[Rfam]
Nucleotides: 144
Base pairs, nucleotide, nucleotide: 002058003057004056005055006054007053008050012046013045014044015043016042017041020038021037023032024031074136075135076134077133078132087125088124092121093120094119096117097116098115099114100113
Number, partner (000 for none) and nucleotide at each position: 001000u002058g003057c004056c005055c006054a007053a008050g009000c010000c011000a012046c013045g014044u015043c016042a017041c018000c019000u020038g021037u022000a023032g024031c025000u026000c027000g028000a029000a030000c031024g032023c033000c034000a035000u036000g037021a038020c039000u040000g041017g042016u043015g044014a045013u046012g047000c048000u049000a050008u051000g052000a053007u054006u055005g056004g057003g058002c059000g060000a061000a062000g063000a064000u065000c066000a067000a068000a069000c070000u071000g072000c073000u074136u075135c076134g077133c078132a079000u080000c081000c082000u083000g084000a085000u086000a087125g088124g089000a090000a091000c092121c093120u094119a095000u096117g097116g098115a099114u100113a101000u102000a103000a104000u105000c106000u107000c108000c109000a110000g111000a112000u113100u114099a115098u116097c117096c118000a119094u120093g121092g122000a123000g124088c125087c126000g127000u128000u129000a130000c131000g132078u133077g134076c135075g136074a137000u138000c139000a140000c141000a142000a143000u144000c
The family of this 144-nucleotide sequence from Spirodela intermedia is "Small nucleolar RNA snoR2/U65". The family has 11 seed sequences and 908 matches in Rfam 15.1. Clan: SNORA65 clan. Pairs were carried over by alignment from the consensus structure, which was predicted with WAR.